[Rfam]
RNA sequence: GAAAGCUCGAAUCUUGCACCAGGGGCGUACUCACGGGGUACCCAGUUACCCACACUCUCGUCUCGGGAAGGUCUGAGUUUUGGAUUCAAAUGUACUUUCUAGCCGGAAGUCUCUCUCACCAGAGAGAGUGAGGGAACCAGAAAUAGCGCACGCUCCGGGCCCCAUUUAAACCCCCGUCUGUGAAACCUCCUCGUAGGGCCUGAGACGAAGUCCGGAGUGGGCGAUGGAACCUCUCACAAUCGGCCAAGUUAGCUCAAUGUGCGAGACUCCCCCUCAGCGCGCGGGGAAGCAACUCAAUUCAGACUAGUCUUGAGCUUUC
Numbered sequence: 001g002a003a004a005g006c007u008c009g010a011a012u013c014u015u016g017c018a019c020c021a022g023g024g025g026c027g028u029a030c031u032c033a034c035g036g037g038g039u040a041c042c043c044a045g046u047u048a049c050c051c052a053c054a055c056u057c058u059c060g061u062c063u064c065g066g067g068a069a070g071g072u073c074u075g076a077g078u079u080u081u082g083g084a085u086u087c088a089a090a091u092g093u094a095c096u097u098u099c100u101a102g103c104c105g106g107a108a109g110u111c112u113c114u115c116u117c118a119c120c121a122g123a124g125a126g127a128g129u130g131a132g133g134g135a136a137c138c139a140g141a142a143a144u145a146g147c148g149c150a151c152g153c154u155c156c157g158g159g160c161c162c163c164a165u166u167u168a169a170a171c172c173c174c175c176g177u178c179u180g181u182g183a184a185a186c187c188u189c190c191u192c193g194u195a196g197g198g199c200c201u202g203a204g205a206c207g208a209a210g211u212c213c214g215g216a217g218u219g220g221g222c223g224a225u226g227g228a229a230c231c232u233c234u235c236a237c238a239a240u241c242g243g244c245c246a247a248g249u250u251a252g253c254u255c256a257a258u259g260u261g262c263g264a265g266a267c268u269c270c271c272c273c274u275c276a277g278c279g280c281g282c283g284g285g286g287a288a289g290c291a292a293c294u295c296a297a298u299u300c301a302g303a304c305u306a307g308u309c310u311u312g313a314g315c316u317u318u319c
Base pairs, nucleotide, nucleotide: 001319002318003317004316008312009311010310013265014264015263016262017261018260019259022064023063024062025061026060036051037050038049039048040047073302074301075300076299077298083241084240085239086238095109096108097107098106099105110127111126112125113124114123115122128237129236130235131234132233133232134231147223148222149221267289268288270286271285272284
RNA: Nuclear RNase P
Organism: Diaphorina citri